This 86-nucleotide sequence from Solanum commersonii belongs to the Rfam family "MIR8024 microRNA precursor family".
NCBI's taxonomy places the organism under Eukaryota, Embryophyta, eudicotyledons, Solanales, Solanum.
RNA sequence: UUGGAAAAUUUGAAGACUUCAGCUUGCAUAUUCGGAGGAUUUGAAGACUUCAACUUGUAUACUCGGAGGAUUUGAAGACUUCAAUU
Numbered sequence: 001u002u003g004g005a006a007a008a009u010u011u012g013a014a015g016a017c018u019u020c021a022g023c024u025u026g027c028a029u030a031u032u033c034g035g036a037g038g039a040u041u042u043g044a045a046g047a048c049u050u051c052a053a054c055u056u057g058u059a060u061a062c063u064c065g066g067a068g069g070a071u072u073u074g075a076a077g078a079c080u081u082c083a084a085u086u
Stems, first nucleotide, its partner, number of pairs: 001084005009076006017068004025059004032053001034051004
The family's consensus secondary structure was predicted with RNAalifold.